[Rfam]
RNA sequence: CCUAGAUAUAUGCUUAAUUUUCUUUCGUUGUGAAGAAAAGCGGGGGAACCACGUUUUGGGGCGAAUCACAGGCAAGCUGUGUAGGAAACCAUCUUUUCCGAGUCCGUCAGCUAACCUCGUCAGCAGGAGAUGGGUCAUGU
Numbered sequence: 001c002c003u004a005g006a007u008a009u010a011u012g013c014u015u016a017a018u019u020u021u022c023u024u025u026c027g028u029u030g031u032g033a034a035g036a037a038a039a040g041c042g043g044g045g046g047a048a049c050c051a052c053g054u055u056u057u058g059g060g061g062c063g064a065a066u067c068a069c070a071g072g073c074a075a076g077c078u079g080u081g082u083a084g085g086a087a088a089c090c091a092u093c094u095u096u097u098c099c100g101a102g103u104c105c106g107u108c109a110g111c112u113a114a115c116c117u118c119g120u121c122a123g124c125a126g127g128a129g130a131u132g133g134g135u136c137a138u139g140u
Stems, first nucleotide, its partner, number of pairs: 011125004018039008040120006050058002059105003067081004084099004